[Rfam]
RNA: MIR828 microRNA precursor family
RNA sequence: GUAAUGCUUCUUGCUCAAAUGAGUAUUCCAGCCACAGUUGCACAUCCUAUAUGGUAGUCUUUUCUCUCUAUGACUAUGACUAUGUUGCUACAUGGUGCUGAGAUGCUCAUUUGGGCAAGCAGUGUUAC
Numbered sequence: 001g002u003a004a005u006g007c008u009u010c011u012u013g014c015u016c017a018a019a020u021g022a023g024u025a026u027u028c029c030a031g032c033c034a035c036a037g038u039u040g041c042a043c044a045u046c047c048u049a050u051a052u053g054g055u056a057g058u059c060u061u062u063u064c065u066c067u068c069u070a071u072g073a074c075u076a077u078g079a080c081u082a083u084g085u086u087g088c089u090a091c092a093u094g095g096u097g098c099u100g101a102g103a104u105g106c107u108c109a110u111u112u113g114g115g116c117a118a119g120c121a122g123u124g125u126u127a128c
Base pairs, nucleotide, nucleotide: 004125005124006123007122008121010119011118012117013116014115015114016113017112018111019110020109021108022107023106024105025104026103027102029100030099031098032097